[Rfam]
Record summary: A member of the RNA family "ZMP/ZTP riboswitch aptamer (pfl RNA motif)" from Salana multivorans, 90 nucleotides long. Pairs were carried over by alignment from the consensus structure, which is taken from published work. The family has 185 seed sequences and 3,295 matches in Rfam 15.1.

RNA sequence: UGGGCUCGUCGCGACUGGCGCCGGGUGGAACAACCACCGGGGAGCGACGAGGUACGCCGACCAACGGGGCCGCCCGCCUGGGUCCCACGG
Numbered sequence: 001u002g003g004g005c006u007c008g009u010c011g012c013g014a015c016u017g018g019c020g021c022c023g024g025g026u027g028g029a030a031c032a033a034c035c036a037c038c039g040g041g042g043a044g045c046g047a048c049g050a051g052g053u054a055c056g057c058c059g060a061c062c063a064a065c066g067g068g069g070c071c072g073c074c075c076g077c078c079u080g081g082g083u084c085c086c087a088c089g090g
Stems, first nucleotide, its partner, number of pairs: 003053001005051008015041002017078004025037004067085005